RNA sequence: CUCCGGUCCUCUCGCAAUGCUAAAUCGUUGACCUGGUCAGGCCCGGAAGGGAGCAGCCAAGGCGGUGGACGCAUGUGCCGGGAUGCGGCUGGGGUGC
Number, nucleotide and partner (000 for none) at each position: 001c000002u000003c000004c091005g090006g089007u088008c087009c000010u083011c082012u081013c080014g079015c075016a000017a074018u073019g072020c071021u000022a000023a000024a066025u065026c064027g063028u062029u061030g000031a000032c000033c000034u059035g058036g057037u056038c000039a000040g000041g000042c051043c050044c049045g000046g000047a000048a000049g044050g043051g042052a000053g000054c000055a000056g037057c036058c035059a034060a000061g029062g028063c027064g026065g025066u024067g000068g000069a000070c000071g020072c019073a018074u017075g015076u000077g000078c000079c014080g013081g012082g011083a010084u000085g000086c000087g008088g007089c006090u005091g004092g000093g000094g000095u000096g000097c000